Nucleotides: 113
Stems, first nucleotide, its partner, number of pairs: 008099003011064004016058001017033005041057006069094003075088004
Number, partner (000 for none) and nucleotide at each position: 001000g002000g003000g004000g005000c006000a007000a008099u009098c010097c011064a012063c013062g014061g015000g016058a017033g018032c019031c020030c021029c022000g023000a024000c025000g026000c027000g028000c029021g030020g031019g032018g033017c034000u035000g036000a037000g038000a039000u040000u041057g042056a043055a044054c045053u046052u047000c048000u049000c050000g051000c052046g053045a054044g055043u056042u057041c058016u059000c060000a061014c062013c063012g064011u065000u066000c067000a068000a069094c070093c071092u072000g073000a074000u075088c076087u077086g078085g079000g080000u081000c082000a083000u084000a085078c086077c087076a088075g089000c090000g091000g092071a093070g094069g095000a096000a097010g098009g099008a100000c101000c102000a103000u104000c105000u106000c107000g108000a109000u110000g111000a112000u113000g